[Rfam]
RNA sequence: UUUCUACACUUGGGGAGUCCCGCGACGGGGCUGAGAGGUGCAAGGCACCGACCCAUCGAACCUGAUCCGGGUCAUGCCGGCGUAGGGAAGGGUAGAGUGCCGCAU
Numbered sequence: 001u002u003u004c005u006a007c008a009c010u011u012g013g014g015g016a017g018u019c020c021c022g023c024g025a026c027g028g029g030g031c032u033g034a035g036a037g038g039u040g041c042a043a044g045g046c047a048c049c050g051a052c053c054c055a056u057c058g059a060a061c062c063u064g065a066u067c068c069g070g071g072u073c074a075u076g077c078c079g080g081c082g083u084a085g086g087g088a089a090g091g092g093u094a095g096a097g098u099g100c101c102g103c104a105u
Base pairs, nucleotide, nucleotide: 006093007092009090010089011055012054013053014052017031018030019029020028021027038048039047040046041045061086062085063084064083067080068079069078070077
Record summary: Rfam assigns this 105-nucleotide sequence from Paracoccus aestuariivivens to the family "TPP riboswitch aptamer (THI element)". Taxonomically the source falls in Paracoccus (Bacteria, Pseudomonadota, Alphaproteobacteria, Paracoccaceae).